[Rfam]
RNA sequence: CCACAACAUCAAGAGUCGGGCCGACGCCCGGCACCAACCUGCUCCCGGGCAAGGUGGUGCCCCCAUCCGCGGAUGGGGGGAUGUGGCCGACUGGCAAACCUCGGGCCCUUC
Numbered sequence: 001c002c003a004c005a006a007c008a009u010c011a012a013g014a015g016u017c018g019g020g021c022c023g024a025c026g027c028c029c030g031g032c033a034c035c036a037a038c039c040u041g042c043u044c045c046c047g048g049g050c051a052a053g054g055u056g057g058u059g060c061c062c063c064c065a066u067c068c069g070c071g072g073a074u075g076g077g078g079g080g081a082u083g084u085g086g087c088c089g090a091c092u093g094g095c096a097a098a099c100c101u102c103g104g105g106c107c108c109u110u111c
Stems, first nucleotide, its partner, number of pairs: 006084005015032001017030005033058003038054003041050003086095003

Overview
SAM-I/IV (S-adenosyl methionine) riboswitch aptamer: a 111-nucleotide sequence from Sphingomonas carotinifaciens. For this family Rfam cites "The aptamer core of SAM-IV riboswitches mimics the ligand-binding site of SAM-I riboswitches" (Weinberg et al., RNA, 2008). The organism belongs to Sphingomonas, within Bacteria. A search with the family's covariance model found it, with a score of 49 bits.